[Rfam]
Rfam assigns this 74-nucleotide RNA sequence from Ficedula albicollis to the family "Small nucleolar RNA SNORD26". The family is grouped with related families in Rfam's "SNORD26 clan". It is annotated as a C/D-box small nucleolar RNA. Pairs were carried over by alignment from the consensus structure, which was predicted with PFOLD. A reference for the family is Tycowski et al. (1996), "A mammalian gene with introns instead of exons generating stable RNA products", Nature. Taxonomically the source falls in Ficedula (Eukaryota, Eumetazoa, Tetrapoda, Australaves).
RNA sequence: CUGCGGGGAUGAUCACUCUGAACUCUCUCUUGCUGAUGGGUCAGUGGAGAAUUUGUGGACAUGAUCUGAGUGGU
Numbered sequence: 001c002u003g004c005g006g007g008g009a010u011g012a013u014c015a016c017u018c019u020g021a022a023c024u025c026u027c028u029c030u031u032g033c034u035g036a037u038g039g040g041u042c043a044g045u046g047g048a049g050a051a052u053u054u055g056u057g058g059a060c061a062u063g064a065u066c067u068g069a070g071u072g073g074u
Stems, first nucleotide, its partner, number of pairs: 001073004
Gene Ontology terms of the family: RNA processing and nucleolus.